[Rfam]
RNA: mir-146 microRNA precursor family
RNA sequence: AUUUAUUCCCAGCUCUGAGAACUGAAUUCCAUGGGUUGUAGCUGAAGCUGCUGCCAGACUCGUGGGGCUCAGUUCCUCAGCUUGGAUGUUCCUG
Dot-bracket structure: .......((.(((.....(((((((.......((((.....................)))).......)))))))....))).)).........